[Rfam]
RNA: PhotoRC-II RNA
RNA sequence: CAACACUUAACUGCUCUCAAACCAAGACCUAUAGGCAGUAUAAUACUUCGUCUUUUAUCCAGUAGUGAGGGAUUACUGGAAAUAAGUUUCGCA
Numbered sequence: 001c002a003a004c005a006c007u008u009a010a011c012u013g014c015u016c017u018c019a020a021a022c023c024a025a026g027a028c029c030u031a032u033a034g035g036c037a038g039u040a041u042a043a044u045a046c047u048u049c050g051u052c053u054u055u056u057a058u059c060c061a062g063u064a065g066u067g068a069g070g071g072a073u074u075a076c077u078g079g080a081a082a083u084a085a086g087u088u089u090c091g092c093a
Stems, first nucleotide, its partner, number of pairs: 011038005017033001024054005059079007